Background: The record is a 151-nucleotide RNA from Orthoflavivirus japonicum, which matches "Flavivirus 5' UTR" in Rfam. Its family is annotated with viral RNA genome replication in the Gene Ontology. Rfam's curators put it in the seed alignment. Rfam's curators write: The 5' UTR of flaviviruses are highly structured, has a length of approximately 100 nucleotides and harbors two conserved RNA secondary structures vital for the viral life cycle. During replication, a long-range RNA-RNA interaction between 5' UTR and 3' UTR of the genome is formed to initiate synthesis of new viral replicates and viral protein translation. In direct adjacency to the 5' UTR, already part of the coding region, lies the cHP structure, which is essential for the viral replication. The first structural element is termed 5'SLA and comprises three stems (S1, S2, S3) folded as Y-shaped-like stem structure, and a side structure domain (SSD). Clan: Flavivirus 5' UTR clan. Lineage of the source: Viruses > Kitrinoviricota > Flasuviricetes > Amarillovirales > Orthoflavivirus japonicum. By type it is a cis-regulatory element. Pairs were carried over by alignment from the consensus structure, which was predicted with LocARNA. The literature on the family includes a 2008 paper in Virology by Yu et al., "Specific requirements for elements of the 5' and 3' terminal regions in flavivirus RNA synthesis and viral replication".
[Rfam]
RNA sequence: AGAAGUUUAUCUGUGUGAACUUCUUGGCUUAGUAUCGUUGAGAAGAAUCGAGAGAUUAGUGCAGUUUAAACAGUUUUUUAGAACGGAAGAACAACCAUGACUAAAAAACCAGGAGGGCCCGGAAAAAACCGGGCCAUCAAUAUGCUGAAAC
Numbered sequence: 001a002g003a004a005g006u007u008u009a010u011c012u013g014u015g016u017g018a019a020c021u022u023c024u025u026g027g028c029u030u031a032g033u034a035u036c037g038u039u040g041a042g043a044a045g046a047a048u049c050g051a052g053a054g055a056u057u058a059g060u061g062c063a064g065u066u067u068a069a070a071c072a073g074u075u076u077u078u079u080a081g082a083a084c085g086g087a088a089g090a091a092c093a094a095c096c097a098u099g100a101c102u103a104a105a106a107a108a109c110c111a112g113g114a115g116g117g118c119c120c121g122g123a124a125a126a127a128a129c130c131g132g133g134c135c136a137u138c139a140a141u142a143u144g145c146u147g148a149a150a151c
Base pairs, nucleotide, nucleotide: 005071006070007069008068009067011064012063013062014061015060016059020045021044023042024041025040026039030037046057047056048055049054073109074108075107076106077105078104079103080102081101085096086095113138114137116135117134118133119132120131121130122129